[Rfam]
RNA: tRNA
RNA sequence: GCGGGUGUAGCUCAGCUGGCAGAGUACAAGCUUCCCAAGCUUGGUGUCGCGGGUUCGACUCCCGUCACCCGCU
Numbered sequence: 001g002c003g004g005g006u007g008u009a010g011c012u013c014a015g016c017u018g019g020c021a022g023a024g025u026a027c028a029a030g031c032u033u034c035c036c037a038a039g040c041u042u043g044g045u046g047u048c049g050c051g052g053g054u055u056c057g058a059c060u061c062c063c064g065u066c067a068c069c070c071g072c073u
Stems, first nucleotide, its partner, number of pairs: 001072007010025004027043005049065005